[Rfam]
RNA sequence: CCUCCUUUCUUGGCAUGCACGUAGUUUUCUCAGUACUCGUGUGUGUAUGUAUGGAGGAAUAGAAGUGCCAGUGCUAUGUCUUCGGUACCAGCAUGUUCCCAUCAGCUGGUUCUAUCCUCAAUCACUGGAACACGC
Numbered sequence: 001c002c003u004c005c006u007u008u009c010u011u012g013g014c015a016u017g018c019a020c021g022u023a024g025u026u027u028u029c030u031c032a033g034u035a036c037u038c039g040u041g042u043g044u045g046u047a048u049g050u051a052u053g054g055a056g057g058a059a060u061a062g063a064a065g066u067g068c069c070a071g072u073g074c075u076a077u078g079u080c081u082u083c084g085g086u087a088c089c090a091g092c093a094u095g096u097u098c099c100c101a102u103c104a105g106c107u108g109g110u111u112c113u114a115u116c117c118u119c120a121a122u123c124a125c126u127g128g129a130a131c132a133c134g135c
Stems, first nucleotide, its partner, number of pairs: 001057005014045006021038001023037003069127005088109005